[Rfam]
RNA sequence: CUUGUGGAGAGUUAUAUCAAACGAAAGUAGUUCAGACGAAAUCGGACUCGUUGAAACAAGAA
Numbered sequence: 001c002u003u004g005u006g007g008a009g010a011g012u013u014a015u016a017u018c019a020a021a022c023g024a025a026a027g028u029a030g031u032u033c034a035g036a037c038g039a040a041a042u043c044g045g046a047c048u049c050g051u052u053g054a055a056a057c058a059a060g061a062a
Stems, first nucleotide, its partner, number of pairs: 001060005009049005022044003030037002

Shown here is a 62-nucleotide RNA sequence, a member of the family "RAGATH-18 RNA". It is one of the family's seed sequences. The family's consensus secondary structure is taken from published work.